[Rfam]
RNA sequence: ACCCGGGGACGACCCCGGCGCAUCUCGUCAUUCGCAGGGACGACCCUG
Dot-bracket structure: ..((((((....))))))................(((((....)))))
This 48-nucleotide RNA sequence from Cognatundibacterium oligocarboniphilum belongs to the Rfam family "Guanidine-II riboswitch aptamer (mini-ykkC)". Simpler in structure and has fewer highly conserved nucleotide positions than the ykkC-yxkD leader. Despite this each of its two stem-loop structures directly bind free guanidine. Therefore, mini-ykkC RNA motif represents a distinct class of guanidine-sensing RNAs. Its crystal structure was also determined. A reference for the family is Weinberg et al. (2007), "Identification of 22 candidate structured RNAs in bacteria using the CMfinder comparative genomics pipeline", Nucleic Acids Res. A search with the family's covariance model found it, with a score of 46 bits.